[Rfam]
RNA: Streptomyces RNA 4115
Organism: Streptomyces radiopugnans
RNA sequence: GCGUGGGUCGGCCCACCGCACUGGUACCGGUGGGCUGGGGGAAUGCCGUCGUCCCAUUCCCCGCGGACGGCGGUCCGGUCCGGGAGGUGACGAAGCCUCCCGGACUGCC
Numbered sequence: 001g002c003g004u005g006g007g008u009c010g011g012c013c014c015a016c017c018g019c020a021c022u023g024g025u026a027c028c029g030g031u032g033g034g035c036u037g038g039g040g041g042a043a044u045g046c047c048g049u050c051g052u053c054c055c056a057u058u059c060c061c062c063g064c065g066g067a068c069g070g071c072g073g074u075c076c077g078g079u080c081c082g083g084g085a086g087g088u089g090a091c092g093a094a095g096c097c098u099c100c101c102g103g104a105c106u107g108c109c
Stems, first nucleotide, its partner, number of pairs: 001108002006076002009037010038044001046073009077106012